[Rfam]
RNA sequence: GCGGGACUCAAACCGUGGGGGCACUUUCUGGCGUCUGGAGUAGAGUGCCGCCAGGGUUUGAGUGUUGC
Number, nucleotide and partner (000 for none) at each position: 001g000002c000003g000004g065005g000006a063007c062008u061009c060010a059011a058012a057013c000014c000015g000016u053017g052018g051019g000020g049021g048022c047023a046024c045025u044026u043027u042028c000029u000030g000031g000032c000033g000034u000035c000036u000037g000038g000039a000040g000041u000042a027043g026044a025045g024046u023047g022048c021049c020050g000051c018052c017053a016054g000055g000056g000057u012058u011059u010060g009061a008062g007063u006064g000065u004066u000067g000068c000